[Rfam]
RNA sequence: AGCCUCCCUCUUUGGGGCGAUCGAUUGCAGGGCUCUGCGAUCGAUCGCUCAGCAGAGGGAGGCC
Number, nucleotide and partner (000 for none) at each position: 001a000002g063003c062004c061005u060006c059007c058008c057009u056010c055011u054012u000013u052014g000015g050016g049017g048018c047019g046020a045021u044022c043023g042024a041025u040026u039027g038028c037029a036030g035031g000032g000033c000034u000035c030036u029037g028038c027039g026040a025041u024042c023043g022044a021045u020046c019047g018048c017049u016050c015051a000052g013053c000054a011055g010056a009057g008058g007059g006060a005061g004062g003063c002064c000
mir-9242 microRNA precursor family: a 64-nucleotide sequence from Cnephaeus nilssonii. A search with the family's covariance model found it, with a score of 64 bits. Gene Ontology terms of the family: RISC complex and miRNA-mediated post-transcriptional gene silencing.